[Rfam]
Rfam assigns this 190-nucleotide RNA sequence to the family "drz-agam-2-2 ribozyme".
Rfam 15.1 lists 486 matches to the family in 10 species.
The sequence is in the family's curated seed alignment.
Gene Ontology term of the family: catalytic activity.
RNA sequence: ACCAUCUCUCAUAUUGUAUAUAGUAUGGAUCCGAAGCCUCUUGAAGAUUAACAUAGACUCUCCACCUCACUUCAAUUCAAUACGUUCCCGGCGUAUAGAAUGGUAACAUGUCUCUCCAAAUAUCUGAGCUUGGGUAAACGUGAAAACCCAAUCCCUUGGGAAGAUGGGUGAUAUGGCUAAAUUGAGUGGA
Numbered sequence: 001a002c003c004a005u006c007u008c009u010c011a012u013a014u015u016g017u018a019u020a021u022a023g024u025a026u027g028g029a030u031c032c033g034a035a036g037c038c039u040c041u042u043g044a045a046g047a048u049u050a051a052c053a054u055a056g057a058c059u060c061u062c063c064a065c066c067u068c069a070c071u072u073c074a075a076u077u078c079a080a081u082a083c084g085u086u087c088c089c090g091g092c093g094u095a096u097a098g099a100a101u102g103g104u105a106a107c108a109u110g111u112c113u114c115u116c117c118a119a120a121u122a123u124c125u126g127a128g129c130u131u132g133g134g135u136a137a138a139c140g141u142g143a144a145a146a147c148c149c150a151a152u153c154c155c156u157u158g159g160g161a162a163g164a165u166g167g168g169u170g171a172u173a174u175g176g177c178u179a180a181a182u183u184g185a186g187u188g189g190a
Stems, first nucleotide, its partner, number of pairs: 011101002014098004022067002026064004032056001071190004076186006082094003086103002107175006114168001116167002122165004130151006153160002